[Rfam]
RNA: Ribosomal protein L20 leader
RNA sequence: UUGUAAAAGAAGAGGCUGCCCGCUUCUCGCCUGAUUGACGCAUAAAGCUGUUAACAGGUUAUUGAUUUCAUAUCCAUUCUUGACUAUUUGUGCGUGAAUGUGGUGCGGGUUGCUUAUGCCCGUGCUUUUUUUAUGUG
Number, nucleotide and partner (000 for none) at each position: 001u000002u000003g000004u000005a000006a000007a000008a000009g000010a000011a027012g026013a025014g024015g023016c022017u000018g000019c000020c000021c000022g016023c015024u014025u013026c012027u011028c000029g059030c058031c057032u000033g000034a000035u000036u000037g052038a051039c050040g048041c047042a000043u000044a000045a000046a000047g041048c040049u000050g039051u038052u037053a000054a000055c000056a000057g031058g030059u029060u000061a000062u000063u000064g000065a000066u000067u000068u000069c000070a000071u000072a000073u000074c000075c000076a000077u000078u000079c000080u000081u000082g000083a000084c000085u000086a000087u000088u000089u000090g000091u000092g000093c000094g000095u000096g000097a000098a000099u000100g000101u000102g000103g000104u124105g123106c122107g121108g120109g119110u118111u000112g000113c000114u000115u000116a000117u000118g110119c109120c108121c107122g106123u105124g104125c000126u000127u000128u000129u000130u000131u000132u000133a000134u000135g000136u000137g000